Background:
Shown here is a 58-nucleotide sequence from Caenorhabditis briggsae, a member of the family "mir-7583 microRNA precursor family". The match comes from Rfam's covariance-model search (49 bits). The source organism's lineage runs through Eukaryota, Ecdysozoa, Rhabditida, Rhabditina and Caenorhabditis.
RNA sequence: AGUUGCAAAUAUUGUGGUGGCAUCACUAAUUGUUUUGCAAUCUGACUUUUAUGGUUGA
Numbered sequence: 001a002g003u004u005g006c007a008a009a010u011a012u013u014g015u016g017g018u019g020g021c022a023u024c025a026c027u028a029a030u031u032g033u034u035u036u037g038c039a040a041u042c043u044g045a046c047u048u049u050u051a052u053g054g055u056u057g058a
Stems, first nucleotide, its partner, number of pairs: 001056005007050003012045003016042003020038003025033002